[Rfam]
The record is a 73-nucleotide sequence from Aphis craccivora, which matches "mir-3017 microRNA precursor family" in Rfam.
RNA sequence: CUGUGUUCUGUUCCUAACUCGGCUAAUGGCGGCAGACUGGCGGGCGCCCUCCGGUCCGUCACAGAACACGGGA
Numbered sequence: 001c002u003g004u005g006u007u008c009u010g011u012u013c014c015u016a017a018c019u020c021g022g023c024u025a026a027u028g029g030c031g032g033c034a035g036a037c038u039g040g041c042g043g044g045c046g047c048c049c050u051c052c053g054g055u056c057c058g059u060c061a062c063a064g065a066a067c068a069c070g071g072g073a
Base pairs, nucleotide, nucleotide: 001071002070003069004068005067006066007065008064009063010062011061014058017055018054020053021052022051028048029047030046

Pairs were carried over by alignment from the consensus structure, which was predicted with RNAalifold.